[Rfam]
RNA sequence: GUAUUAGUAAUCGUAGCUAAUGAGGUUAAUCUGAGGCGUGAUCAUUGCUAGUUGAAAACUUUUCCCAAUAACCUUAUAUAUAAUAUCUAUUAUACACAUAAAUCUAUACCACACUUAUCAGCAGU
Dot-bracket structure: .........(((((.(((.....((.....))..))))))))...............................(..(.((((((....)))))).)...)............(((.......)))
U4 spliceosomal RNA: a 125-nucleotide sequence from Gopherus agassizii. NCBI's taxonomy places the organism under Eukaryota, Chordata, Sauropsida, Sauria, Gopherus. Clan: U4 clan. Rfam classes the family as a spliceosomal small nuclear RNA.